Shown here is a 64-nucleotide RNA from Myotis myotis, a member of the family "mir-9242 microRNA precursor family".
NCBI's taxonomy places the organism under Eukaryota, Teleostomi, Amniota, Theria, Myotis.
RNA sequence: GGCCUCCCUCUGCGGAGUCAUCCAUCAUGGGGCUCCAUGAUGGAUGGCUCCACAGAGAGAGGCC
Numbered sequence: 001g002g003c004c005u006c007c008c009u010c011u012g013c014g015g016a017g018u019c020a021u022c023c024a025u026c027a028u029g030g031g032g033c034u035c036c037a038u039g040a041u042g043g044a045u046g047g048c049u050c051c052a053c054a055g056a057g058a059g060a061g062g063c064c
Stems, first nucleotide, its partner, number of pairs: 001064006008057005014051017